[Rfam]
RNA: UnaL2 LINE 3' element
RNA sequence: UGCACUCCCUACUGCAAGUCUCUCUGGAUAAGAGCGUCUGCUAAAUGACGUAAA
Numbered sequence: 001u002g003c004a005c006u007c008c009c010u011a012c013u014g015c016a017a018g019u020c021u022c023u024c025u026g027g028a029u030a031a032g033a034g035c036g037u038c039u040g041c042u043a044a045a046u047g048a049c050g051u052a053a054a
Stems, first nucleotide, its partner, number of pairs: 013043001014041003020036001022034004